[Rfam]
RNA: Nuclear RNase P
RNA sequence: GUCCUCACCACCGCCGCGUUUCUUUGCUCACACACCGACACACUUCUGUGCGUCUCAAACAUGGCAAAUGGGAAAUUCGGAGUAAUCUUCAAUCAAUCACCAAAAUAAGACAUGUCCCCACCACUCACCCUGGUGUUCUCGACAAAAAUUAUUUCACUGCCCGUAAGGGCCUACCAUGACACUCAUGGCUGCAUUUGGCAUCAGAAAACUCAGCCCCCUCCCUGUGAGGGGGCUAUGGGAGCCGGUGCGAAGAUUGUGUGUGCUCUUUCUCUUUGGGGGAGUACGAUCACUUUAGUGCAAUACGCGGCCUCUUUUUUUCCCCCUCCCGGGCCUUGUCCUCUCUGCUGUUGUGGUAGAUGGGCGGGUUUGGAGGGGGGAGAGGGAGAACUCAAUUCUGAUUACUCUGGUGAGGAC
Numbered sequence: 001g002u003c004c005u006c007a008c009c010a011c012c013g014c015c016g017c018g019u020u021u022c023u024u025u026g027c028u029c030a031c032a033c034a035c036c037g038a039c040a041c042a043c044u045u046c047u048g049u050g051c052g053u054c055u056c057a058a059a060c061a062u063g064g065c066a067a068a069u070g071g072g073a074a075a076u077u078c079g080g081a082g083u084a085a086u087c088u089u090c091a092a093u094c095a096a097u098c099a100c101c102a103a104a105a106u107a108a109g110a111c112a113u114g115u116c117c118c119c120a121c122c123a124c125u126c127a128c129c130c131u132g133g134u135g136u137u138c139u140c141g142a143c144a145a146a147a148a149u150u151a152u153u154u155c156a157c158u159g160c161c162c163g164u165a166a167g168g169g170c171c172u173a174c175c176a177u178g179a180c181a182c183u184c185a186u187g188g189c190u191g192c193a194u195u196u197g198g199c200a201u202c203a204g205a206a207a208a209c210u211c212a213g214c215c216c217c218c219u220c221c222c223u224g225u226g227a228g229g230g231g232g233c234u235a236u237g238g239g240a241g242c243c244g245g246u247g248c249g250a251a252g253a254u255u256g257u258g259u260g261u262g263c264u265c266u267u268u269c270u271c272u273u274u275g276g277g278g279g280a281g282u283a284c285g286a287u288c289a290c291u292u293u294a295g296u297g298c299a300a301u302a303c304g305c306g307g308c309c310u311c312u313u314u315u316u317u318u319c320c321c322c323c324u325c326c327c328g329g330g331c332c333u334u335g336u337c338c339u340c341u342c343u344g345c346u347g348u349u350g351u352g353g354u355a356g357a358u359g360g361g362c363g364g365g366u367u368u369g370g371a372g373g374g375g376g377g378a379g380a381g382g383g384a385g386a387a388c389u390c391a392a393u394u395c396u397g398a399u400u401a402c403u404c405u406g407g408u409g410a411g412g413a414c
Base pairs, nucleotide, nucleotide: 001414002413003412004411008407009406010405013308014307015306016305017304018303019302023068024067025066026065037054038053039052041050042049078397079396080395081394082393087252088251089250090249159170160169161168162167174188175187176186177185191248192247193246194245195244197242212234213233214232309385310384311383312382313381314380315379316378317377318376319375320374321373322372